[Rfam]
RNA sequence: AUAUUCGCUGUUCUCCGAGCCAUAUUACCUGUAAGCAUUGGCUAUGGUGCUAUGGCCGUUAGGGUUAACCGGGAAACUGAUUAGCCUCCCUCUGGAAAGGAGAGCCUUAGCCACCUGU
Numbered sequence: 001a002u003a004u005u006c007g008c009u010g011u012u013c014u015c016c017g018a019g020c021c022a023u024a025u026u027a028c029c030u031g032u033a034a035g036c037a038u039u040g041g042c043u044a045u046g047g048u049g050c051u052a053u054g055g056c057c058g059u060u061a062g063g064g065u066u067a068a069c070c071g072g073g074a075a076a077c078u079g080a081u082u083a084g085c086c087u088c089c090c091u092c093u094g095g096a097a098a099g100g101a102g103a104g105c106c107u108u109a110g111c112c113a114c115c116u117g118u
Stems, first nucleotide, its partner, number of pairs: 011104006019056006026049004033043001035042002062087007070079003088095002